RNA sequence: AUCGCUUCUCGGCCUUUUGGCUAAGAUCAAGUGUAGUAUCUGUUCUUAUCAGUUUAGUAUCUGAUAUGUCCUCUAUCCGAGGACAAUAUAUUAAAUGGGUUUUUGGAGCAGGAACAUGGACUAGGAGCUUGCUCUGUCCACUCCACGCAUCAACCUGGUAUUGCCGUACCUCUAGGAACAGUGCACCCCUC
Numbered sequence: 001a002u003c004g005c006u007u008c009u010c011g012g013c014c015u016u017u018u019g020g021c022u023a024a025g026a027u028c029a030a031g032u033g034u035a036g037u038a039u040c041u042g043u044u045c046u047u048a049u050c051a052g053u054u055u056a057g058u059a060u061c062u063g064a065u066a067u068g069u070c071c072u073c074u075a076u077c078c079g080a081g082g083a084c085a086a087u088a089u090a091u092u093a094a095a096u097g098g099g100u101u102u103u104u105g106g107a108g109c110a111g112g113a114a115c116a117u118g119g120a121c122u123a124g125g126a127g128c129u130u131g132c133u134c135u136g137u138c139c140a141c142u143c144c145a146c147g148c149a150u151c152a153a154c155c156u157g158g159u160a161u162u163g164c165c166g167u168a169c170c171u172c173u174a175g176g177a178a179c180a181g182u183g184c185a186c187c188c189c190u191c
Stems, first nucleotide, its partner, number of pairs: 007026003011022004047066006068084006112144001114142001118138002124135004147184004154176005

The record is a 191-nucleotide RNA from Macaca mulatta, which matches "U2 spliceosomal RNA" in Rfam. A search with the family's covariance model found it, with a score of 163 bits. By type it is a spliceosomal small nuclear RNA. A reference for the family is Zwieb (1997), "The uRNA database", Nucleic Acids Res. Pairs were carried over by alignment from the consensus structure, which is taken from published work. The organism belongs to Macaca, within Eukaryota.